Shown here is a 156-nucleotide RNA sequence from Legionella tucsonensis, a member of the family "Group II catalytic intron D1-D4-7". On this family, see Chu et al., EMBO J 2001: "Control of branch-site choice by a group II intron". Rfam describes the family as follows. Group II introns are found in rRNA, tRNA and mRNA of organelles in fungi, plants and protists, and also in mRNA in bacteria. Pairs were carried over by alignment from the consensus structure. The match comes from Rfam's covariance-model search (103 bits).
RNA sequence: CCUAUGAUUCCGUUCAUAGUAGCCUAGUUCGACGUGCGUUAUUGGUAACGAUGGCGUGCGAAACUCGAAUGACAAUGCACUGAAGUUUACUCAUGUAAACGUCGUGGAUUUGCUGAUAAGUAAACACGAAUCUGGAAGCUUCAUCCGGAAUAAGGC
Numbered sequence: 001c002c003u004a005u006g007a008u009u010c011c012g013u014u015c016a017u018a019g020u021a022g023c024c025u026a027g028u029u030c031g032a033c034g035u036g037c038g039u040u041a042u043u044g045g046u047a048a049c050g051a052u053g054g055c056g057u058g059c060g061a062a063a064c065u066c067g068a069a070u071g072a073c074a075a076u077g078c079a080c081u082g083a084a085g086u087u088u089a090c091u092c093a094u095g096u097a098a099a100c101g102u103c104g105u106g107g108a109u110u111u112g113c114u115g116a117u118a119a120g121u122a123a124a125c126a127c128g129a130a131u132c133u134g135g136a137a138g139c140u141u142c143a144u145c146c147g148g149a150a151u152a153a154g155g156c
Stems, first nucleotide, its partner, number of pairs: 002019006028069005033060012085100006101127002111118002131149006